[Rfam]
Shown here is a 117-nucleotide RNA sequence from Megasphaera sp. AM44-1BH, a member of the family "FMN riboswitch aptamer (RFN element)".
The base pairs follow the family's consensus structure, which is taken from published work.
The organism belongs to Megasphaera, within Bacteria.
RNA sequence: AAAUGUCUUCAGGGCAGGGUGUAAUUCCCGACCGGCGGUAUAGUCCGCUAGCGCUCCGGCGCAUGAUUUGGUGCAAUUCCAAAACCGACCGUAUAGUCUGGAUGGAAGAAGGCAAUC
Number, nucleotide and partner (000 for none) at each position: 001a000002a000003a000004u114005g113006u112007c111008u110009u109010c108011a000012g000013g000014g000015c000016a000017g029018g028019g027020u000021g000022u000023a000024a000025u000026u000027c019028c018029c017030g000031a097032c096033c087034g086035g048036c047037g046038g045039u000040a000041u000042a000043g085044u084045c038046c037047g036048c035049u000050a000051g000052c000053g000054c000055u000056c000057c000058g000059g000060c000061g000062c000063a000064u000065g000066a000067u083068u082069u081070g080071g079072u000073g000074c000075a000076a000077u000078u000079c071080c070081a069082a068083a067084a044085c043086c034087g033088a000089c100090c000091g098092u000093a000094u000095a000096g032097u031098c091099u000100g089101g000102a000103u000104g000105g000106a000107a000108g010109a009110a008111g007112g006113c005114a004115a000116u000117c000